[Rfam]
RNA sequence: GGAUGGACUAGGUCGGGCAGCCAGGCCCUGCCCUUCACCCGCAAUUUCGGCCUUUAGCGGGGACCGAAACCGGGGGCGUCCGGUCAGACCGACACGGGCCCCGGGAGCCAACGUCGAAGCCUCGUCCCUCGGGGACAGCGGACCGUGGAAGCCGACCGCAGGGUCGGUUGCACGCGGUUCACCGGUGAUACCCCGCCAGGCGCGGAAGCGAGCAACGGACCGCCGGACGUGCGUCGCUCGAGGGAUCGCGGGGUGGAGGAGGCAACCGGGACUACCCGUGCCGGAACGCCGGGCAAACCCGUCGUCCGCCA
Number, nucleotide and partner (000 for none) at each position: 001g000002g310003a000004u308005g307006g306007a305008c304009u000010a000011g065012g064013u063014c062015g033016g032017g031018c030019a029020g028021c000022c000023a000024g000025g000026c000027c000028c020029u019030g018031c017032c016033c015034u000035u000036c000037a000038c061039c060040c059041g058042c057043a000044a055045u000046u000047u000048c000049g000050g000051c000052c000053u000054u000055u044056a000057g042058c041059g040060g039061g038062g014063a013064c012065c011066g000067a000068a000069a000070c000071c301072g300073g299074g298075g000076g000077c000078g294079u293080c292081c291082g289083g000084u000085c000086a000087g000088a000089c284090c283091g282092a000093c280094a279095c278096g277097g276098g275099c000100c270101c269102c268103g267104g266105g000106a000107g263108c262109c261110a000111a000112c258113g000114u256115c000116g000117a000118a000119g254120c253121c252122u251123c250124g249125u248126c244127c243128c242129u241130c240131g239132g238133g237134g235135a234136c233137a000138g230139c229140g228141g179142a178143c177144c176145g175146u174147g173148g171149a000150a169151g168152c167153c166154g165155a164156c163157c162158g000159c000160a000161g000162g157163g156164u155165c154166g153167g152168u151169u150170g000171c148172a000173c147174g146175c145176g144177g143178u142179u141180c000181a000182c226183c225184g224185g223186u222187g221188a000189u000190a000191c000192c000193c218194c217195g216196c000197c000198a000199g000200g000201c210202g209203c208204g000205g000206a000207a000208g203209c202210g201211a000212g000213c000214a000215a000216c195217g194218g193219a000220c000221c187222g186223c185224c184225g183226g182227a000228c140229g139230u138231g000232c000233g136234u135235c134236g000237c133238u132239c131240g130241a129242g128243g127244g126245a000246u000247c000248g125249c124250g123251g122252g121253g120254u119255g000256g114257a000258g112259g000260a000261g109262g108263c107264a000265a000266c104267c103268g102269g101270g100271a000272c000273u000274a000275c098276c097277c096278g095279u094280g093281c000282c091283g090284g089285a000286a000287c000288g000289c082290c000291g081292g080293g079294c078295a000296a000297a000298c074299c073300c072301g071302u000303c000304g008305u007306c006307c005308g004309c000310c002311a000
Rfam assigns this 311-nucleotide RNA from Halopelagius inordinatus to the family "Archaeal signal recognition particle RNA". NCBI's taxonomy places the organism under Archaea, Methanobacteriota, Halobacteriales, Haloferacaceae, Halopelagius. The family's consensus secondary structure is taken from published work. Rfam classes the family as a non-coding RNA gene. Rfam links the family to the GO terms signal recognition particle, plasma membrane targeting and SRP-dependent cotranslational protein targeting to membrane, signal sequence recognition.